The family of this 114-nucleotide sequence from Schistosoma margrebowiei is "Potassium channel RNA editing signal". Rfam links the family to the GO term adenosine to inosine editing. This family represents a group of sequences related to the human potassium channel Kv1.1 hairpin element which directs the efficient modification of an adenosine to inosine by an adenosine deaminase acting on RNA (ADAR). It scores 74 bits against the family's covariance model. It is annotated as a cis-regulatory element. The organism belongs to Schistosoma, within Eukaryota.

RNA sequence: GUCAGAUAUGGUGAUAUGAUACCAUCUACAGUAUUGGGUAAAAUAAUUGGCAGUAUUUGUUCUUUAUGCGGUGUAUUAGUCAUAGCUUUACCAGUACCAGUAAUUGUAUCAAAU
Numbered sequence: 001g002u003c004a005g006a007u008a009u010g011g012u013g014a015u016a017u018g019a020u021a022c023c024a025u026c027u028a029c030a031g032u033a034u035u036g037g038g039u040a041a042a043a044u045a046a047u048u049g050g051c052a053g054u055a056u057u058u059g060u061u062c063u064u065u066a067u068g069c070g071g072u073g074u075a076u077u078a079g080u081c082a083u084a085g086c087u088u089u090a091c092c093a094g095u096a097c098c099a100g101u102a103a104u105u106g107u108a109u110c111a112a113a114u
Stems, first nucleotide, its partner, number of pairs: 001114002005110001007108005014101002018097001021095002037077004049063002